[Rfam]
RNA sequence: GCAACUUGCAGUUGUUUUAAUAAAAUUGGUUCCUUAGGUUAUUUGCCUCUCUUCGUGAGAGGCAUUUUUUUUAUGUAUUUU
Number, nucleotide and partner (000 for none) at each position: 001g015002c014003a013004a012005c011006u010007u000008g000009c000010a006011g005012u004013u003014g002015u001016u000017u000018u000019a000020a000021u000022a000023a000024a000025a000026u000027u000028g000029g000030u000031u000032c000033c000034u000035u000036a000037g000038g000039u000040u000041a000042u000043u000044u064045g063046c062047c061048u060049c059050u058051c057052u000053u000054c000055g000056u000057g051058a050059g049060a048061g047062g046063c045064a044065u000066u000067u000068u000069u000070u000071u000072u000073a000074u000075g000076u000077a000078u000079u000080u000081u000